The record is a 283-nucleotide RNA from Argiope bruennichi, which matches "Nuclear RNase P" in Rfam. The organism belongs to Argiope, within Eukaryota. Pairs were carried over by alignment from the consensus structure, which is taken from published work. The family's RNA type in Rfam is ribozyme. For this family Rfam cites "Eukaryotic Ribonuclease P: A Plurality of Ribonucleoprotein Enzymes" (Xiao et al., Annu Rev Biochem, 2002).
[Rfam]
RNA sequence: GUGCUUGGUGAGUUUGUACAAGGGAUUACGAAAGCACACAAGUUGCGCAUGGUUGUCCUUGGGAAGGUCUGAGAUAGUGCCCUUACUGAUCCGUGAGGGAUCCCCGUUCAAUGCUGGGCAGGCCAAGAGCAAAUGCUAUGUUCCGCUGUGAAGUUGCAAAGGAGGCAGUAAAUCUGCUGAUGCUCUCCUGCAGCGUGAAUUUGGGAAGGCCUGUGGCAAGAAACAACAGCUCGAUGUGCAAAGCCCGUAAAGGUAACUCAAUUCAGACUACUCUCCCAUGCAC
Numbered sequence: 001g002u003g004c005u006u007g008g009u010g011a012g013u014u015u016g017u018a019c020a021a022g023g024g025a026u027u028a029c030g031a032a033a034g035c036a037c038a039c040a041a042g043u044u045g046c047g048c049a050u051g052g053u054u055g056u057c058c059u060u061g062g063g064a065a066g067g068u069c070u071g072a073g074a075u076a077g078u079g080c081c082c083u084u085a086c087u088g089a090u091c092c093g094u095g096a097g098g099g100a101u102c103c104c105c106g107u108u109c110a111a112u113g114c115u116g117g118g119c120a121g122g123c124c125a126a127g128a129g130c131a132a133a134u135g136c137u138a139u140g141u142u143c144c145g146c147u148g149u150g151a152a153g154u155u156g157c158a159a160a161g162g163a164g165g166c167a168g169u170a171a172a173u174c175u176g177c178u179g180a181u182g183c184u185c186u187c188c189u190g191c192a193g194c195g196u197g198a199a200u201u202u203g204g205g206a207a208g209g210c211c212u213g214u215g216g217c218a219a220g221a222a223a224c225a226a227c228a229g230c231u232c233g234a235u236g237u238g239c240a241a242a243g244c245c246c247g248u249a250a251a252g253g254u255a256a257c258u259c260a261a262u263u264c265a266g267a268c269u270a271c272u273c274u275c276c277c278a279u280g281c282a283c
Stems, first nucleotide, its partner, number of pairs: 001283004008276001010274001013242007021060005034048002037045002069266005078218004088102005103117002106114002118214007140200003243254003